Shown here is a 169-nucleotide sequence from Phyllostomus discolor, a member of the family "Small Cajal body specific RNA 1". Rfam describes the family as follows. scaRNAs are a specific class of small nuclear RNAs which localise to the Cajal bodies and guide the modification of RNA polymerase II transcribed spliceosomal RNAs U1, U2, U4, U5 and U12. ACA35 belong to the H/ACA box class of guide RNAs as it has the predicted hairpin-hinge-hairpin-tail structure, conserved H/ACA-box motifs and is found associated with GAR1. It is predicted to guide pseudouridylation of the U2 spliceosomal snRNA at residue U89. Taxonomically the source falls in Phyllostomus (Eukaryota, Metazoa, Euteleostomi, Boreoeutheria). Gene Ontology terms of the family: nucleolus, RNA processing and Cajal body. The literature on the family includes a 2002 paper in EMBO J by Darzacq et al., "Cajal body-specific small nuclear RNAs: a novel class of 2'-O-methylation and pseudouridylation guide RNAs".
[Rfam]
RNA sequence: CAGCACUUGACAUCAGUCCAGCAAGCUCCGUCCCAGCCUUGCGUCCACGGCUCGCUACGUGCCAUGUUAGUUUAGUGCUUGACGAAGUGCAGCACUGCAGCCAGAGCCACGCGUCUUUUGAGCCCAGGGGGUAAAGACACACUCUGAGUUGUAACCCAGUGGCACACCG
Dot-bracket structure: ..((((((......((.(.(((.((((.(((.(.((((.(......).)))).)..))).)....))).)))....).))....))))))...............(((..................(.(.((....)).).).(((.((....)).))).)))......
Numbered sequence: 001c002a003g004c005a006c007u008u009g010a011c012a013u014c015a016g017u018c019c020a021g022c023a024a025g026c027u028c029c030g031u032c033c034c035a036g037c038c039u040u041g042c043g044u045c046c047a048c049g050g051c052u053c054g055c056u057a058c059g060u061g062c063c064a065u066g067u068u069a070g071u072u073u074a075g076u077g078c079u080u081g082a083c084g085a086a087g088u089g090c091a092g093c094a095c096u097g098c099a100g101c102c103a104g105a106g107c108c109a110c111g112c113g114u115c116u117u118u119u120g121a122g123c124c125c126a127g128g129g130g131g132u133a134a135a136g137a138c139a140c141a142c143u144c145u146g147a148g149u150u151g152u153a154a155c156c157c158a159g160u161g162g163c164a165c166a167c168c169g
Stems, first nucleotide, its partner, number of pairs: 003090006015080002018077001020072003024068003027061001029059003033054001035052004040047001106163003127142001129140001131138002144159003148155002